[Rfam]
Rfam assigns this 73-nucleotide sequence from Sylvia borin to the family "tRNA". Pairs were carried over by alignment from the consensus structure, which is taken from published work. Lineage of the source: Eukaryota > Gnathostomata > Archelosauria > Passeriformes > Sylvia. It scores 51 bits against the family's covariance model.
RNA sequence: GCCUGGAUAGCUCAGUUGGGAGAGCAUUAGACUUCUAAUCUGAGGGUACAGGGUUCAAGCCCUUGUUAAGGUG
Numbered sequence: 001g002c003c004u005g006g007a008u009a010g011c012u013c014a015g016u017u018g019g020g021a022g023a024g025c026a027u028u029a030g031a032c033u034u035c036u037a038a039u040c041u042g043a044g045g046g047u048a049c050a051g052g053g054u055u056c057a058a059g060c061c062c063u064u065g066u067u068a069a070g071g072u073g
Stems, first nucleotide, its partner, number of pairs: 001072004006067002010025004027043005049065005